[Rfam]
RNA sequence: CUCCGUGGUGCCCUCAUUGUACCUGCUGUGUGUAUGCUGCAUGUACACAGCGCAUGCAAUGUGGACACCAUGGGG
Numbered sequence: 001c002u003c004c005g006u007g008g009u010g011c012c013c014u015c016a017u018u019g020u021a022c023c024u025g026c027u028g029u030g031u032g033u034a035u036g037c038u039g040c041a042u043g044u045a046c047a048c049a050g051c052g053c054a055u056g057c058a059a060u061g062u063g064g065a066c067a068c069c070a071u072g073g074g075g
Base pairs, nucleotide, nucleotide: 012064013063015061016060017059018058019057020056021055024052026050027049028048029047030046031045

Shown here is a 75-nucleotide RNA from Indicator maculatus, a member of the family "mir-460 microRNA precursor family". For this family Rfam cites "Identification of microRNAs from different tissues of chicken embryo and adult chicken" (Xu et al., FEBS Lett, 2006). The family's consensus secondary structure was predicted with RNAalifold.